Small nucleolar RNA R11/Z151: a 99-nucleotide sequence from Leersia perrieri.

RNA sequence: GAGCUUGUGAUGAUUCAGGUCCACAAGCAUCUUAGUAGAUUUCUGUGAGGCGAGUCUAUCGCGGUUAAUCGCUUAUUGUUGUUACACACACUGAAGCUU
Numbered sequence: 001g002a003g004c005u006u007g008u009g010a011u012g013a014u015u016c017a018g019g020u021c022c023a024c025a026a027g028c029a030u031c032u033u034a035g036u037a038g039a040u041u042u043c044u045g046u047g048a049g050g051c052g053a054g055u056c057u058a059u060c061g062c063g064g065u066u067a068a069u070c071g072c073u074u075a076u077u078g079u080u081g082u083u084a085c086a087c088a089c090a091c092u093g094a095a096g097c098u099u
Stems, first nucleotide, its partner, number of pairs: 001099005
Its family is annotated with nucleolus and RNA processing in the Gene Ontology.
By type it is a C/D-box small nucleolar RNA.